The record is a 74-nucleotide RNA from Candidatus Izimoplasma sp. HR1, which matches "Fluoride riboswitch aptamer (crcB RNA motif)" in Rfam.

[Rfam]
RNA sequence: UUAUUUUUAGGGAAUGAAGUACUCCCUUAGUAUUUUUACUAAAACCGCUAUAAGCUGAUGACUUCUACGUUAUU
Numbered sequence: 001u002u003a004u005u006u007u008u009a010g011g012g013a014a015u016g017a018a019g020u021a022c023u024c025c026c027u028u029a030g031u032a033u034u035u036u037u038a039c040u041a042a043a044a045c046c047g048c049u050a051u052a053a054g055c056u057g058a059u060g061a062c063u064u065c066u067a068c069g070u071u072a073u074u
Base pairs, nucleotide, nucleotide: 010026011025012024013023016065017064018063019062020061047055048054049053
Background:
NCBI's taxonomy places the organism under Bacteria, Bacillati, Mollicutes, Candidatus Izemoplasmatales, Candidatus Izemoplasma. Rfam links the family to the GO terms positive regulation of gene expression and response to fluoride.